[Rfam]
RNA: c-di-AMP riboswitch aptamer (ydaO/yuaA leader)
Organism: Bacillus cereus
RNA sequence: UUUUUGUAAACGCUGAGUCCAAUUAUAUGGAGCGGAGGAACCAAUUUGUGCGUAGGCACUAGGGGUGAAUCUUUCAAGUUUGAAAGUAGGGCUACUCUCAAAGUCCGAAUCCGACAGCUAACUUCGUAAGCGUCUUGAGAGAGGACGG
Numbered sequence: 001u002u003u004u005u006g007u008a009a010a011c012g013c014u015g016a017g018u019c020c021a022a023u024u025a026u027a028u029g030g031a032g033c034g035g036a037g038g039a040a041c042c043a044a045u046u047u048g049u050g051c052g053u054a055g056g057c058a059c060u061a062g063g064g065g066u067g068a069a070u071c072u073u074u075c076a077a078g079u080u081u082g083a084a085a086g087u088a089g090g091g092c093u094a095c096u097c098u099c100a101a102a103g104u105c106c107g108a109a110u111c112c113g114a115c116a117g118c119u120a121a122c123u124u125c126g127u128a129a130g131c132g133u134c135u136u137g138a139g140a141g142a143g144g145a146c147g148g
Base pairs, nucleotide, nucleotide: 011132012131013130014129018031019030020029032127033126034125035124036123037122042062063112064111065110071086072085073084074083089106090105091104092103